[Rfam]
RNA: S10-Clostridia ribosomal protein leader
Organism: Ruthenibacterium lactatiformans
RNA sequence: GAUAUGCGUUGACGCGGGAGGUUGCGGCACUUUGUGCCGGUUUUUCCGCCGAGUAUGUCCGAUCAAUGAACCGGGCGA
Numbered sequence: 001g002a003u004a005u006g007c008g009u010u011g012a013c014g015c016g017g018g019a020g021g022u023u024g025c026g027g028c029a030c031u032u033u034g035u036g037c038c039g040g041u042u043u044u045u046c047c048g049c050c051g052a053g054u055a056u057g058u059c060c061g062a063u064c065a066a067u068g069a070a071c072c073g074g075g076c077g078a
Base pairs, nucleotide, nucleotide: 014049015048016047018046019045020044021043025039026038027037028036029035056077057076058075059074060073061072063070